The record is a 375-nucleotide RNA from Phytoactinopolyspora halotolerans, which matches "Bacterial RNase P class A" in Rfam. Rfam's curators write: Ribonuclease P (RNase P) is a ubiquitous endoribonuclease, found in archaea, bacteria and eukarya as well as chloroplasts and mitochondria. The family's consensus secondary structure is taken from published work.
RNA sequence: UGAGCUGGCCGGGCGGCCGCGUCGGCACCAUGCGUGCCGCCGAGGAAAGUCCGGACUCCACAGGGCAGGGUGGUGGGUAACGCCCACCCGGGGCAACCCGCGGGACAGUGCCACAGAAAGCAAACCGCCCGCGUGCCACGGUGCGCGGGUAAGGGUGAAACGGUGGUGUAAGAGACCACCAGCGUCCUGGGUGACCAGGACGGCUAGGUAAACCCCACCCGGAGCAAGGUCAGACAGGGAACGUUCGAGGGUCGCCCGCCCGAGUUCCCGGGUAGACCGCACGAGGCCGUCGGUAACGGCGGCCCCAGAUGGAUGGUCGCCGCUCCCGGCGAAAGCCGGGAGGCACAGAAUCCGGCUUACAGGCCAGCUCGUCCU
Numbered sequence: 001u002g003a004g005c006u007g008g009c010c011g012g013g014c015g016g017c018c019g020c021g022u023c024g025g026c027a028c029c030a031u032g033c034g035u036g037c038c039g040c041c042g043a044g045g046a047a048a049g050u051c052c053g054g055a056c057u058c059c060a061c062a063g064g065g066c067a068g069g070g071u072g073g074u075g076g077g078u079a080a081c082g083c084c085c086a087c088c089c090g091g092g093g094c095a096a097c098c099c100g101c102g103g104g105a106c107a108g109u110g111c112c113a114c115a116g117a118a119a120g121c122a123a124a125c126c127g128c129c130c131g132c133g134u135g136c137c138a139c140g141g142u143g144c145g146c147g148g149g150u151a152a153g154g155g156u157g158a159a160a161c162g163g164u165g166g167u168g169u170a171a172g173a174g175a176c177c178a179c180c181a182g183c184g185u186c187c188u189g190g191g192u193g194a195c196c197a198g199g200a201c202g203g204c205u206a207g208g209u210a211a212a213c214c215c216c217a218c219c220c221g222g223a224g225c226a227a228g229g230u231c232a233g234a235c236a237g238g239g240a241a242c243g244u245u246c247g248a249g250g251g252u253c254g255c256c257c258g259c260c261c262g263a264g265u266u267c268c269c270g271g272g273u274a275g276a277c278c279g280c281a282c283g284a285g286g287c288c289g290u291c292g293g294u295a296a297c298g299g300c301g302g303c304c305c306c307a308g309a310u311g312g313a314u315g316g317u318c319g320c321c322g323c324u325c326c327c328g329g330c331g332a333a334a335g336c337c338g339g340g341a342g343g344c345a346c347a348g349a350a351u352c353c354g355g356c357u358u359a360c361a362g363g364c365c366a367g368c369u370c371g372u373c374c375u
Base pairs, nucleotide, nucleotide: 001371002370003369004368005367006366007365008364009363010362011360012321013320014319015318016317017316018315020042021041023039024038025037026036027035028034047358048357049356051355052354053353054352055351056224057223058222059221063257064256065255066254068220069219070218071217072216073087074086075085076084077083088102089100090099091098092097103215104214108213109212110209111208112207125154126153127150128149129148130147131146132145133144134143135142162180163179164178165177166176167175182204183202184201185200186199187198188197189196190195228278229277230276231275237269238268239267240266241265242264249261250260251259252258285304286303287302288301289300290299291298292297